[Rfam]
RNA sequence: AGUUGCAAGUUUGAAGCCACAGAAGAAGCAUUUAUGGCGCAGCCAUGUCAGAUUCCCAUAAAUCUGUGAAUCCUGCU
Numbered sequence: 001a002g003u004u005g006c007a008a009g010u011u012u013g014a015a016g017c018c019a020c021a022g023a024a025g026a027a028g029c030a031u032u033u034a035u036g037g038c039g040c041a042g043c044c045a046u047g048u049c050a051g052a053u054u055c056c057c058a059u060a061a062a063u064c065u066g067u068g069a070a071u072c073c074u075g076c077u
Base pairs, nucleotide, nucleotide: 012045013044016043017042021077022076024074025073027071028040029039049066050065051064052063053062054061